The family of this 93-nucleotide RNA from Gadus morhua is "mir-217 microRNA precursor family".
RNA sequence: GACAAUCUGGUGUGGAUGAUACUGCAUCAGGAACUGAUUGGCUGAUGCCUAGUGGCCAACAGUACCUGAUGCAUUUCCUUCAGCACCAAAAGA
Numbered sequence: 001g002a003c004a005a006u007c008u009g010g011u012g013u014g015g016a017u018g019a020u021a022c023u024g025c026a027u028c029a030g031g032a033a034c035u036g037a038u039u040g041g042c043u044g045a046u047g048c049c050u051a052g053u054g055g056c057c058a059a060c061a062g063u064a065c066c067u068g069a070u071g072c073a074u075u076u077c078c079u080u081c082a083g084c085a086c087c088a089a090a091a092g093a
Base pairs, nucleotide, nucleotide: 023073024072025071026070027069029067030066031065033063034062035061036060039058040057041056
Background: Lineage of the source: Eukaryota > Deuterostomia > Chordata > Teleostomi > Gadus. A reference for the family is Lim et al. (2003), "Vertebrate microRNA genes", Science.